[Rfam]
RNA sequence: UAUAAAAAAUUUCAUCCAUUUUUACUGUUAAAUACUGUCCUGACUGACAAAAUAAUCAGAUAGUUACAUAUGACGUGUUACAUGUACCUUAGACUGGCGUACAUAAACCAGUUUUUAACAGUAAAAAUAGAUAAAAUUUUGAACA
Numbered sequence: 001u002a003u004a005a006a007a008a009a010u011u012u013c014a015u016c017c018a019u020u021u022u023u024a025c026u027g028u029u030a031a032a033u034a035c036u037g038u039c040c041u042g043a044c045u046g047a048c049a050a051a052a053u054a055a056u057c058a059g060a061u062a063g064u065u066a067c068a069u070a071u072g073a074c075g076u077g078u079u080a081c082a083u084g085u086a087c088c089u090u091a092g093a094c095u096g097g098c099g100u101a102c103a104u105a106a107a108c109c110a111g112u113u114u115u116u117a118a119c120a121g122u123a124a125a126a127a128u129a130g131a132u133a134a135a136a137u138u139u140u141g142a143a144c145a
Stems, first nucleotide, its partner, number of pairs: 003143001006140007014132003018128009028118005